[Rfam]
RNA sequence: CUCAGAUAAAGCCAAAACCCGGGCAACCGGGUGACGGAAAGCCACAGAUCCGGAGAUAUCCACCACUCCAGGGACGGAGGACAACGUAACGGGACGACGGAUGGACCGGAUGGCUGGGCCGCCUGG
Numbered sequence: 001c002u003c004a005g006a007u008a009a010a011g012c013c014a015a016a017a018c019c020c021g022g023g024c025a026a027c028c029g030g031g032u033g034a035c036g037g038a039a040a041g042c043c044a045c046a047g048a049u050c051c052g053g054a055g056a057u058a059u060c061c062a063c064c065a066c067u068c069c070a071g072g073g074a075c076g077g078a079g080g081a082c083a084a085c086g087u088a089a090c091g092g093g094a095c096g097a098c099g100g101a102u103g104g105a106c107c108g109g110a111u112g113g114c115u116g117g118g119c120c121g122c123c124u125g126g
Base pairs, nucleotide, nucleotide: 012037013036017032018031019030020029021028022027041119042118043117045116046115047114048111049110050109051108052107053106

Source information:
Rfam assigns this 126-nucleotide RNA from Geobacter pickeringii to the family "c-di-GMP-I riboswitch aptamer". It scores 50 bits against the family's covariance model.